[Rfam]
RNA sequence: AGUACAAAUCGUUCUAUCGCGUUACACUUUUUGUGUAAUGAGGAAAGUCCGGACAGCAAAGAGCAUCUAACCCGGGGAAACGCGGGGUGCAGAAAUGUAACAGCUAGUGCAGCAGAAAAUAUACCGCCACACAUUGUGUGGUAAGGGUGAAAAGGUGAGGUAAGAGCUCACCAGUUAUAAUAGUAAUAUUGUAAGCUUGGUAAACCUUUAGAGCUGAAAGAUCAAAUAAACCAAGGCUUGAGGGUUGCUCGCCCAAUCUUGGAGGGUAGAUCGAAUGAGGGUAGAGGCAACUUUACUCCCAGAUAAAUGAUAGAAUUCCGAUUUAUCGGGAACAGAAACUGGCUUAUAGAUUUGUAUUUUAU
Numbered sequence: 001a002g003u004a005c006a007a008a009u010c011g012u013u014c015u016a017u018c019g020c021g022u023u024a025c026a027c028u029u030u031u032u033g034u035g036u037a038a039u040g041a042g043g044a045a046a047g048u049c050c051g052g053a054c055a056g057c058a059a060a061g062a063g064c065a066u067c068u069a070a071c072c073c074g075g076g077g078a079a080a081c082g083c084g085g086g087g088u089g090c091a092g093a094a095a096u097g098u099a100a101c102a103g104c105u106a107g108u109g110c111a112g113c114a115g116a117a118a119a120u121a122u123a124c125c126g127c128c129a130c131a132c133a134u135u136g137u138g139u140g141g142u143a144a145g146g147g148u149g150a151a152a153a154g155g156u157g158a159g160g161u162a163a164g165a166g167c168u169c170a171c172c173a174g175u176u177a178u179a180a181u182a183g184u185a186a187u188a189u190u191g192u193a194a195g196c197u198u199g200g201u202a203a204a205c206c207u208u209u210a211g212a213g214c215u216g217a218a219a220g221a222u223c224a225a226a227u228a229a230a231c232c233a234a235g236g237c238u239u240g241a242g243g244g245u246u247g248c249u250c251g252c253c254c255a256a257u258c259u260u261g262g263a264g265g266g267u268a269g270a271u272c273g274a275a276u277g278a279g280g281g282u283a284g285a286g287g288c289a290a291c292u293u294u295a296c297u298c299c300c301a302g303a304u305a306a307a308u309g310a311u312a313g314a315a316u317u318c319c320g321a322u323u324u325a326u327c328g329g330g331a332a333c334a335g336a337a338a339c340u341g342g343c344u345u346a347u348a349g350a351u352u353u354g355u356a357u358u359u360u361a362u
Base pairs, nucleotide, nucleotide: 001358002357003356004355005354006353007352008351009350010349011347012315013314014313015312016311017310018309020040021039022038023037024036025035026034027033045345046344047343049342050341051340052339054216055215056214057213061250062249063248064247066212067211068210069209070208071086072085073084074083087101088099089098090097091096102207103206107205108204109201110200124146125145126142127141128140129139130138131137132136154172155171156170157169158168159167174196175194176193177192178191179190180189181188182187220272221271222270223269231262232261233260234259235258242254243253244252245251279298280297281296282295283294284293285292286291
Shown here is a 362-nucleotide RNA from Vicingus serpentipes, a member of the family "Bacterial RNase P class A". It is annotated as a ribozyme. A search with the family's covariance model found it, with a score of 269 bits. The base pairs follow the family's consensus structure, which is taken from published work.